[Rfam]
RNA sequence: UUCUUAUCAAGAGAGGUGGAGGGAAUGGCCCUUUGAAACCUCGGCAACCAUUAAGUAACUUACUUAAUACAGGUGCCAAUUCCUACUAUUACCGUAAAGGUUUUAGAAGAGAUAAGAG
Numbered sequence: 001u002u003c004u005u006a007u008c009a010a011g012a013g014a015g016g017u018g019g020a021g022g023g024a025a026u027g028g029c030c031c032u033u034u035g036a037a038a039c040c041u042c043g044g045c046a047a048c049c050a051u052u053a054a055g056u057a058a059c060u061u062a063c064u065u066a067a068u069a070c071a072g073g074u075g076c077c078a079a080u081u082c083c084u085a086c087u088a089u090u091a092c093c094g095u096a097a098a099g100g101u102u103u104u105a106g107a108a109g110a111g112a113u114a115a116g117a118g
Stems, first nucleotide, its partner, number of pairs: 001118008013042005021031003027083002043077004048073002050068006081110001086106003091101003
RNA: SAM riboswitch aptamer (S box leader)
Organism: Saliterribacillus persicus